[Rfam]
RNA sequence: UUUUAUCAAGGGAAUGAGGCACUCCCUAAAUUUCUGUAAAGAAUUUAAACCGCGAUUUUUCGCUGAUGGCUUCUAUGACGCU
Numbered sequence: 001u002u003u004u005a006u007c008a009a010g011g012g013a014a015u016g017a018g019g020c021a022c023u024c025c026c027u028a029a030a031u032u033u034c035u036g037u038a039a040a041g042a043a044u045u046u047a048a049a050c051c052g053c054g055a056u057u058u059u060u061c062g063c064u065g066a067u068g069g070c071u072u073c074u075a076u077g078a079c080g081c082u
Stems, first nucleotide, its partner, number of pairs: 010026004016073005052063004
The family of this 82-nucleotide RNA sequence from Streptococcus varani is "Fluoride riboswitch aptamer (crcB RNA motif)". Rfam links the family to the GO terms response to fluoride and positive regulation of gene expression. The base pairs follow the family's consensus structure, which is taken from published work.